[Rfam]
RNA sequence: GCAUAGUGUUACCAUCAGCAGCACUCCCUAAGUUUAUUUCCUCAAUUAAUAGCCACUUAUGUGGAUGCUAGAUUCUGGAAGUAAAAUAUAAACUUGGAAUGGUUCUUCUCUCCUCCUAAACCCCAGUUCUAAAUCUAGUUAGGAAGAUUCUGAAAGUAAGGCAUCCAACAAAUGACUAUAAAUGAGUGUGU
Numbered sequence: 001g002c003a004u005a006g007u008g009u010u011a012c013c014a015u016c017a018g019c020a021g022c023a024c025u026c027c028c029u030a031a032g033u034u035u036a037u038u039u040c041c042u043c044a045a046u047u048a049a050u051a052g053c054c055a056c057u058u059a060u061g062u063g064g065a066u067g068c069u070a071g072a073u074u075c076u077g078g079a080a081g082u083a084a085a086a087u088a089u090a091a092a093c094u095u096g097g098a099a100u101g102g103u104u105c106u107u108c109u110c111u112c113c114u115c116c117u118a119a120a121c122c123c124c125a126g127u128u129c130u131a132a133a134u135c136u137a138g139u140u141a142g143g144a145a146g147a148u149u150c151u152g153a154a155a156g157u158a159a160g161g162c163a164u165c166c167a168a169c170a171a172a173u174g175a176c177u178a179u180a181a182a183u184g185a186g187u188g189u190g191u
Stems, first nucleotide, its partner, number of pairs: 022188004034181004042175003050063002065164005071123001073119002077116003092111001096106004127154003132149005

A member of the RNA family "Beta-globin co-transcriptional cleavage ribozyme" from Rhinolophus ferrumequinum, 191 nucleotides long. The organism belongs to Rhinolophus, within Eukaryota. Rfam describes the family as follows. Transcription termination of RNA polymerase II transcripts is proposed to occur by a two stage process. Pairs were carried over by alignment from the consensus structure, which is taken from published work.